[Rfam]
RNA sequence: UAUGACGCUUCAGAUUUUAUUCGUAUAUCCCUGAGAAUAAGGUUCGGGGGUUUCUACAAGGAACCGUAAAUUCCUGACUACGAAUAGGGUGCCCAGGCAU
Numbered sequence: 001u002a003u004g005a006c007g008c009u010u011c012a013g014a015u016u017u018u019a020u021u022c023g024u025a026u027a028u029c030c031c032u033g034a035g036a037a038u039a040a041g042g043u044u045c046g047g048g049g050g051u052u053u054c055u056a057c058a059a060g061g062a063a064c065c066g067u068a069a070a071u072u073c074c075u076g077a078c079u080a081c082g083a084a085u086a087g088g089g090u091g092c093c094c095a096g097g098c099a100u
Stems, first nucleotide, its partner, number of pairs: 018086008029049007059075005

Description:
Rfam assigns this 100-nucleotide sequence from Paenibacillus sp. JCM 10914 to the family "Purine riboswitch aptamer". The match comes from Rfam's covariance-model search (72 bits). Pairs were carried over by alignment from the consensus structure, which is taken from published work.